[Rfam]
RNA sequence: GGUUAUCCGGAAGAAGGCGUCGGGGGUUGCUCACAGGUCCUUGGUGGCCUUCGAUCCCCCGGGAAGGUCUGAGAAAAGGUACGCCUGCAUUGGGCAGGUGUGGGCCUGAGAAGGGCCUCGCUCGGAAGAGCGGGAGGCUGUAACAGAAACACACCCUGCGGGGUUUGAACCACAGCCUCUACCGGCAGUGUCUGAGUGCGAUCGUCCAGUUAACACAAUUCAGACUAGUCUUCGGAAAACC
Numbered sequence: 001g002g003u004u005a006u007c008c009g010g011a012a013g014a015a016g017g018c019g020u021c022g023g024g025g026g027u028u029g030c031u032c033a034c035a036g037g038u039c040c041u042u043g044g045u046g047g048c049c050u051u052c053g054a055u056c057c058c059c060c061g062g063g064a065a066g067g068u069c070u071g072a073g074a075a076a077a078g079g080u081a082c083g084c085c086u087g088c089a090u091u092g093g094g095c096a097g098g099u100g101u102g103g104g105c106c107u108g109a110g111a112a113g114g115g116c117c118u119c120g121c122u123c124g125g126a127a128g129a130g131c132g133g134g135a136g137g138c139u140g141u142a143a144c145a146g147a148a149a150c151a152c153a154c155c156c157u158g159c160g161g162g163g164u165u166u167g168a169a170c171c172a173c174a175g176c177c178u179c180u181a182c183c184g185g186c187a188g189u190g191u192c193u194g195a196g197u198g199c200g201a202u203c204g205u206c207c208a209g210u211u212a213a214c215a216c217a218a219u220u221c222a223g224a225c226u227a228g229u230c231u232u233c234g235g236a237a238a239a240c241c
Base pairs, nucleotide, nucleotide: 001241002240003239004238009233010232011231016207017206022060023059024058025057026056036049037048039047040046069223070222071221072220073219078183079182080181081180103117104116105115106114107113118133119132120131121130122129123128134179135178136177137176138175139174140173154163155162156161

Description:
The family of this 241-nucleotide RNA from Nippostrongylus brasiliensis is "Nuclear RNase P". Rfam's curators write: Ribonuclease P (RNase P) is a ubiquitous endoribonuclease, found in archaea, bacteria and eukarya as well as chloroplasts and mitochondria. Its best characterised activity is the generation of mature 5'-ends of tRNAs by cleaving the 5'-leader elements of precursor-tRNAs. Cellular RNase Ps are ribonucleoproteins. RNA from bacterial RNase Ps retains its catalytic activity in the absence of the protein subunit, i.e. it is a ribozyme. Isolated eukaryotic and archaeal RNase P RNA has not been shown to retain its catalytic function, but is still essential for the catalytic activity of the holoenzyme. Although the archaeal and eukaryotic holoenzyme s have a much greater protein content than the bacterial ones, the RNA cores from all the three lineages are homologous -- helices corresponding to P1, P2, P3, P4, and P10/11 are common to all cellular RNase P RNAs. Yet, there is considerable sequence variation, particularly among the eukaryotic RNAs. A search with the family's covariance model found it, with a score of 103 bits. Rfam classes the family as a ribozyme.